[Rfam]
This 186-nucleotide RNA from Hoylesella marshii belongs to the Rfam family "Bacteroidales-1 6S-Bacteroidales RNA suggested". The organism belongs to Hoylesella marshii, within Bacteria.
RNA sequence: GGUCGUAUCGAUUCGAUUGGGAUACUCAUCAAUUAAAAUCGAAAAACCGAGAUGACUUCUCUUGUCAAUGGCGGGCCACAUACCACAUAAGCGGUAAGCUGAAAAGCCGGUGGAUUACAAAGGCGGAGAGCUCUCAAAUCUUAUAUGACUCGGAGUUUUCAUCACAUCAUCGGUACGACCUCUUAC
Numbered sequence: 001g002g003u004c005g006u007a008u009c010g011a012u013u014c015g016a017u018u019g020g021g022a023u024a025c026u027c028a029u030c031a032a033u034u035a036a037a038a039u040c041g042a043a044a045a046a047c048c049g050a051g052a053u054g055a056c057u058u059c060u061c062u063u064g065u066c067a068a069u070g071g072c073g074g075g076c077c078a079c080a081u082a083c084c085a086c087a088u089a090a091g092c093g094g095u096a097a098g099c100u101g102a103a104a105a106g107c108c109g110g111u112g113g114a115u116u117a118c119a120a121a122g123g124c125g126g127a128g129a130g131c132u133c134u135c136a137a138a139u140c141u142u143a144u145a146u147g148a149c150u151c152g153g154a155g156u157u158u159u160c161a162u163c164a165c166a167u168c169a170u171c172g173g174u175a176c177g178a179c180c181u182c183u184u185a186c
Stems, first nucleotide, its partner, number of pairs: 056130002059128002062126005069119002076113004082095003098107003